RNA sequence: GUGCCCUUUUAAGGUUGAUACUGUACUUUAAGAGGCUAACACAGAAGGGUAAAGGAACUCUCCAUCAAACCCAGAGAAGAGGCUCCCCACUUCCUCUCUGGAUCCUGUCUGGAGUCACAGCU
Number, nucleotide and partner (000 for none) at each position: 001g000002u051003g050004c049005c048006c047007u046008u045009u044010u043011a000012a000013g000014g040015u039016u038017g037018a000019u035020a000021c032022u000023g000024u000025a000026c000027u000028u000029u000030a000031a000032g021033a000034g000035g019036c000037u017038a016039a015040c014041a000042c000043a010044g009045a008046a007047g006048g005049g004050u003051a002052a000053a000054g000055g000056a000057a000058c000059u000060c114061u113062c112063c111064a110065u000066c000067a000068a000069a000070c000071c101072c100073a099074g098075a097076g096077a095078a000079g093080a092081g091082g000083c000084u089085c000086c000087c000088c000089a084090c000091u081092u080093c079094c000095u077096c076097u075098c074099u073100g072101g071102a000103u000104c000105c000106u000107g000108u000109c000110u064111g063112g062113a061114g060115u000116c000117a000118c000119a000120g000121c000122u000